The family of this 100-nucleotide RNA sequence from Erwinia billingiae is "Tryptophan operon leader". Rfam's curators write: At least 6 amino acid operons are known to be regulated by attenuation. In each a leader sequence of 150-200 bp is found upstream of the first gene in the operon. This leader sequence can assume two different secondary structures known as the terminator and the anti-terminator structure. The match comes from Rfam's covariance-model search (52 bits). Pairs were carried over by alignment from the consensus structure, which is taken from published work. It is annotated as a cis-regulatory leader.
RNA sequence: ACUGGUUGGUGGCGCACUUCUCCCUGAAUGGGCGAAGGAGUCAUGCACGCAACCAGACGUUGUGCAGAUACCCAGGCCCGCCAAAAGCGGGCCUUUUUUU
Number, nucleotide and partner (000 for none) at each position: 001a000002c000003u000004g000005g000006u000007u000008g000009g044010u043011g042012g041013c000014g000015c037016a000017c000018u036019u035020c034021u000022c032023c031024c030025u000026g000027a000028a000029u000030g024031g023032g022033c000034g020035a019036a018037g015038g000039a000040g000041u012042c011043a010044u009045g000046c000047a000048c000049g000050c000051a000052a000053c000054c000055a000056g000057a000058c000059g000060u000061u000062g000063u000064g000065c000066a000067g000068a000069u000070a000071c000072c000073c000074a000075g093076g092077c091078c090079c089080g088081c087082c000083a000084a000085a000086a000087g081088c080089g079090g078091g077092c076093c075094u000095u000096u000097u000098u000099u000100u000